[Rfam]
RNA sequence: GGCCCCGGCAGCGGGGCCGUCGCCUUUUGACUGAAACGGACCACCUCAGGUCCAAAGCAACGGAAGACAGAAA
Numbered sequence: 001g002g003c004c005c006c007g008g009c010a011g012c013g014g015g016g017c018c019g020u021c022g023c024c025u026u027u028u029g030a031c032u033g034a035a036a037c038g039g040a041c042c043a044c045c046u047c048a049g050g051u052c053c054a055a056a057g058c059a060a061c062g063g064a065a066g067a068c069a070g071a072a073a
Stems, first nucleotide, its partner, number of pairs: 001018007022051003
The family of this 73-nucleotide RNA from Paracoccus denitrificans is "L2-Alphaproteobacteria ribosomal protein leader". The source organism's lineage runs through Bacteria, Alphaproteobacteria, Rhodobacterales, Paracoccaceae and Paracoccus denitrificans. The sequence is in the family's curated seed alignment. For this family Rfam cites "Discovery of 20 novel ribosomal leader candidates in bacteria and archaea" (Eckert and Weinberg, BMC Microbiol, 2020). Rfam classes the family as a cis-regulatory leader.